Notes
mir-90 microRNA precursor family: an 83-nucleotide RNA from Caenorhabditis remanei. The organism belongs to Caenorhabditis, within Eukaryota. A reference for the family is Lee and Ambros (2001), "An extensive class of small RNAs in Caenorhabditis elegans", Science.
[Rfam]
RNA sequence: CACUUCGAGCGGUAUUCAACGACUAUCUCAACCGAUAUACAUACCAACCGAGUUGAUAUGUUGUUUGAAUGCCCCUUGAACUC
Numbered sequence: 001c002a003c004u005u006c007g008a009g010c011g012g013u014a015u016u017c018a019a020c021g022a023c024u025a026u027c028u029c030a031a032c033c034g035a036u037a038u039a040c041a042u043a044c045c046a047a048c049c050g051a052g053u054u055g056a057u058a059u060g061u062u063g064u065u066u067g068a069a070u071g072c073c074c075c076u077u078g079a080a081c082u083c
Stems, first nucleotide, its partner, number of pairs: 004080006011073003015069003018065006025059002028056005033050002
Pairs were carried over by alignment from the consensus structure, which was predicted with RNAalifold. Rfam's curators put it in the seed alignment.